[Rfam]
RNA sequence: UUCUUAUCAAGAGAGAUGGAGGAACUGGUCCAAUGAAAUCUCGGCAAAAGGCCCUUUUAAGAGUACUGUGCCAAUUCCAGCGAACAAAUGGUUCGAGAGAUAAGAA
Numbered sequence: 001u002u003c004u005u006a007u008c009a010a011g012a013g014a015g016a017u018g019g020a021g022g023a024a025c026u027g028g029u030c031c032a033a034u035g036a037a038a039u040c041u042c043g044g045c046a047a048a049a050g051g052c053c054c055u056u057u058u059a060a061g062a063g064u065a066c067u068g069u070g071c072c073a074a075u076u077c078c079a080g081c082g083a084a085c086a087a088a089u090g091g092u093u094c095g096a097g098a099g100a101u102a103a104g105a106a
Stems, first nucleotide, its partner, number of pairs: 001106008013042005021031003025080004043072004049067001050064001053061001076098001081095005